[Rfam]
RNA: Small nucleolar RNA SNORA67
RNA sequence: AUCCAAUGUGAUUGCCUCCACAAGGGCCCAACUAGUGACCACUUCAGGAAGGUAGAAAAUUGGAAGAAAAACAGGCAUAACUGGAGUCACUUGGGAAAGGGGUGCUUAUUCUAUUUUUAUUUUUUUACUAUUCUUUGGCCUUCACAGGU
Numbered sequence: 001a002u003c004c005a006a007u008g009u010g011a012u013u014g015c016c017u018c019c020a021c022a023a024g025g026g027c028c029c030a031a032c033u034a035g036u037g038a039c040c041a042c043u044u045c046a047g048g049a050a051g052g053u054a055g056a057a058a059a060u061u062g063g064a065a066g067a068a069a070a071a072c073a074g075g076c077a078u079a080a081c082u083g084g085a086g087u088c089a090c091u092u093g094g095g096a097a098a099g100g101g102g103u104g105c106u107u108a109u110u111c112u113a114u115u116u117u118u119a120u121u122u123u124u125u126u127a128c129u130a131u132u133c134u135u136u137g138g139c140c141u142u143c144a145c146a147g148g149u
Base pairs, nucleotide, nucleotide: 002064003063004062005061006060007059009057021047022043025040026039028037073141074140075139076138078137079136080135083133084132085131094122095121096120